[Rfam]
RNA sequence: GCCAUACUACGAUGCUACGAACCAAGGCGCAACGUGGCUGAAAGUAAACGAUGAUCCUCAAGGAACUCUACGUUAAAAUACGAAUCAAAAUGCGAAAUGAUUCCUGGCCUGGUGGCAACGCCGGGUGAGGUUUUUUU
Numbered sequence: 001g002c003c004a005u006a007c008u009a010c011g012a013u014g015c016u017a018c019g020a021a022c023c024a025a026g027g028c029g030c031a032a033c034g035u036g037g038c039u040g041a042a043a044g045u046a047a048a049c050g051a052u053g054a055u056c057c058u059c060a061a062g063g064a065a066c067u068c069u070a071c072g073u074u075a076a077a078a079u080a081c082g083a084a085u086c087a088a089a090a091u092g093c094g095a096a097a098u099g100a101u102u103c104c105u106g107g108c109c110u111g112g113u114g115g116c117a118a119c120g121c122c123g124g125g126u127g128a129g130g131u132u133u134u135u136u137u
Base pairs, nucleotide, nucleotide: 001055003053004052005051010050011049014045015044056063057062072086074084103130104129105128107126108125109124110123111122112121113120
Enterobacteria greA leader: a 137-nucleotide sequence from Rahnella aquatilis. A search with the family's covariance model found it, with a score of 81 bits. The organism belongs to Rahnella aquatilis, within Bacteria.